[Rfam]
RNA sequence: AUAUAAGCAAAAUUGACUUUUUUUGUUCAUUCAAUUAAUGAUGUAUGUGGUCUAUAAUAUGAACCACAUACAUCAUUAAUUGAAUGAACUUAAAAAGCCAAUUUUGCUUAUAU
Numbered sequence: 001a002u003a004u005a006a007g008c009a010a011a012a013u014u015g016a017c018u019u020u021u022u023u024u025g026u027u028c029a030u031u032c033a034a035u036u037a038a039u040g041a042u043g044u045a046u047g048u049g050g051u052c053u054a055u056a057a058u059a060u061g062a063a064c065c066a067c068a069u070a071c072a073u074c075a076u077u078a079a080u081u082g083a084a085u086g087a088a089c090u091u092a093a094a095a096a097g098c099c100a101a102u103u104u105u106g107c108u109u110a111u112a113u
Stems, first nucleotide, its partner, number of pairs: 002112011014100002017097006026088018048066004
Source information
The record is a 113-nucleotide sequence from Medicago truncatula, which matches "MIR2593 microRNA precursor family" in Rfam. Lineage of the source: Eukaryota > Viridiplantae > Embryophyta > Mesangiospermae > Medicago. Its family is annotated with miRNA-mediated post-transcriptional gene silencing and RISC complex in the Gene Ontology.